[Rfam]
RNA: Group I catalytic intron
RNA sequence: ACGAGGGACUUAAAUAUUUGAGUGCACUCUCUGAAAAGAGAGAUGUAGAAUGCCGUAAAUUCAAGGAAACCAUAACAGGUAGAGCUGAUGGCAAUCUUGAGCCAAGCCUCUGAAAAAGAGGAAGGUGCAGAGACUAGACACGGCACUCCUAAAGGAGACAAUUCCUAUGGAGAAGGAAUAGUCCAGACCACAAAAAGCAGUGCGAU
Dot-bracket structure: ....(..((((((....)))))).)...(((......)))..........[[[[.[....((((((...((((..............))))...))))))((....(.(........).)....))...(.(((((...].]]]]..((..(.(((.....))).)..))........))))))......(..(......)..)..
Numbered sequence: 001a002c003g004a005g006g007g008a009c010u011u012a013a014a015u016a017u018u019u020g021a022g023u024g025c026a027c028u029c030u031c032u033g034a035a036a037a038g039a040g041a042g043a044u045g046u047a048g049a050a051u052g053c054c055g056u057a058a059a060u061u062c063a064a065g066g067a068a069a070c071c072a073u074a075a076c077a078g079g080u081a082g083a084g085c086u087g088a089u090g091g092c093a094a095u096c097u098u099g100a101g102c103c104a105a106g107c108c109u110c111u112g113a114a115a116a117a118g119a120g121g122a123a124g125g126u127g128c129a130g131a132g133a134c135u136a137g138a139c140a141c142g143g144c145a146c147u148c149c150u151a152a153a154g155g156a157g158a159c160a161a162u163u164c165c166u167a168u169g170g171a172g173a174a175g176g177a178a179u180a181g182u183c184c185a186g187a188c189c190a191c192a193a194a195a196a197g198c199a200g201u202g203c204g205a206u
Stems, first nucleotide, its partner, number of pairs: 005025001008023006029040003051145004056140001061100006070091004101126002107120001109118001130184001132183005148170002152166001154164003191204001194201001